Notes
Glycine riboswitch aptamer: a 129-nucleotide RNA from Rhodococcus sp. AD45.
[Rfam]
RNA sequence: UCCGACGCCUCUGGAAAGCGGUGGGAUAACCCACCCGCCGACGGGGAAAGGCUGUGGUUCCGCCGGCAUGGUGGAUCACUACCGAAUCUCUCAGGCGCUCGUUGUCGAGCAGGCGACAGAGGGGGAGGA
Numbered sequence: 001u002c003c004g005a006c007g008c009c010u011c012u013g014g015a016a017a018g019c020g021g022u023g024g025g026a027u028a029a030c031c032c033a034c035c036c037g038c039c040g041a042c043g044g045g046g047a048a049a050g051g052c053u054g055u056g057g058u059u060c061c062g063c064c065g066g067c068a069u070g071g072u073g074g075a076u077c078a079c080u081a082c083c084g085a086a087u088c089u090c091u092c093a094g095g096c097g098c099u100c101g102u103u104g105u106c107g108a109g110c111a112g113g114c115g116a117c118a119g120a121g122g123g124g125g126a127g128g129a
Base pairs, nucleotide, nucleotide: 006124008122009121010120011119012118013117020035021034022033023032037096038095039094040092041091044090045089046088050083051082